[Rfam]
RNA sequence: UCGGUUCCGGUUCACGCCCAUCUCAGCGCAGGUCAUGAGCGGGCGACCCGGCGGCC
Numbered sequence: 001u002c003g004g005u006u007c008c009g010g011u012u013c014a015c016g017c018c019c020a021u022c023u024c025a026g027c028g029c030a031g032g033u034c035a036u037g038a039g040c041g042g043g044c045g046a047c048c049c050g051g052c053g054g055c056c
Base pairs, nucleotide, nucleotide: 003056004055005054007051008050009049010048015045016044017043018042019041022039023038024037025036
L31-Actinobacteria ribosomal protein leader: a 56-nucleotide sequence from Mycolicibacterium doricum. A search with the family's covariance model found it, with a score of 51 bits. Rfam classes the family as a cis-regulatory leader.